This 180-nucleotide RNA sequence from Streptomyces jeddahensis belongs to the Rfam family "c-di-AMP riboswitch aptamer (ydaO/yuaA leader)". NCBI's taxonomy places the organism under Bacteria, Bacillati, Actinomycetota, Actinomycetes, Streptomyces. The pairing is the family consensus, mapped onto this sequence.
RNA sequence: AUCCUGCCAUCGCCCGGAAUCCCCACUCACACACGUGUUGGCAGGAGCGGGGGAUCCCACAGGUAGUACGCCGGUUCCGGGUCUCCGGACCGGCUUGGGGUGAAGUCGCGCUGAAAAGGCGGCCGGACAUCUCCAGUCCGAACCCGACAGCUCACCUCGCAGGCGCCGGAGAGGAAUUCG
Dot-bracket structure: ..........((((.....(((.....................)))((((((....(.......................................)(((.....((((.........))))..((((.......))))...))).........)))))).))))...............